[Rfam]
RNA sequence: AACGGCGAGGUCUAUCUUGAGAUAAUGAGGUUAUAACCGAGUUGCGUCUAUUGUUGGUUGAAAACUAUUUUCAAACCCCCUCUUAGGCCUUGGUUAAGCCUUGUGCCUUUGAGAAUUUAUGGAAUGGAUCUCUCUUC
Numbered sequence: 001a002a003c004g005g006c007g008a009g010g011u012c013u014a015u016c017u018u019g020a021g022a023u024a025a026u027g028a029g030g031u032u033a034u035a036a037c038c039g040a041g042u043u044g045c046g047u048c049u050a051u052u053g054u055u056g057g058u059u060g061a062a063a064a065c066u067a068u069u070u071u072c073a074a075a076c077c078c079c080c081u082c083u084u085a086g087g088c089c090u091u092g093g094u095u096a097a098g099c100c101u102u103g104u105g106c107c108u109u110u111g112a113g114a115a116u117u118u119a120u121g122g123a124a125u126g127g128a129u130c131u132c133u134c135u136u137c
Stems, first nucleotide, its partner, number of pairs: 018046002021043003029038003080113003085108004090103001092101002126137003